The record is a 117-nucleotide RNA from Sinanaerobacter chloroacetimidivorans, which matches "Molybdenum/Tungsten riboswitch aptamer (Moco RNA motif)" in Rfam.
NCBI's taxonomy places the organism under Bacteria, Bacillati, Clostridia, Peptostreptococcales, Sinanaerobacter.
Its family is annotated with molybdenum ion binding, regulation of gene expression and tungstate binding in the Gene Ontology.
The match comes from Rfam's covariance-model search (74 bits).

RNA sequence: AAUAUGACAAUUUUCCGAGUUGAAGAGAUCUAAGGCGAAGGCUAUGAUCCUCAACCGCUGGGUAUUUAGAGAAAUUUAAAUGCCUCCCGUUUGGAAAGGAAAGCGAAUUUGAAUUUU
Numbered sequence: 001a002a003u004a005u006g007a008c009a010a011u012u013u014u015c016c017g018a019g020u021u022g023a024a025g026a027g028a029u030c031u032a033a034g035g036c037g038a039a040g041g042c043u044a045u046g047a048u049c050c051u052c053a054a055c056c057g058c059u060g061g062g063u064a065u066u067u068a069g070a071g072a073a074a075u076u077u078a079a080a081u082g083c084c085u086c087c088c089g090u091u092u093g094g095a096a097a098g099g100a101a102a103g104c105g106a107a108u109u110u111g112a113a114u115u116u117u
Base pairs, nucleotide, nucleotide: 003111004110006108011103012102013101014100015099016098019055020054021053022052023051025049028048029047030046034043035042036041060085061084062083063082064081065080066079067078068077069076070075086094087093